RNA sequence: GCGUGGGGACGACCCCACGCCAGACACAAUUCGGUAGGGACGACCCUG
Numbered sequence: 001g002c003g004u005g006g007g008g009a010c011g012a013c014c015c016c017a018c019g020c021c022a023g024a025c026a027c028a029a030u031u032c033g034g035u036a037g038g039g040a041c042g043a044c045c046c047u048g
Stems, first nucleotide, its partner, number of pairs: 001020008035048005
RNA: Guanidine-II riboswitch aptamer (mini-ykkC)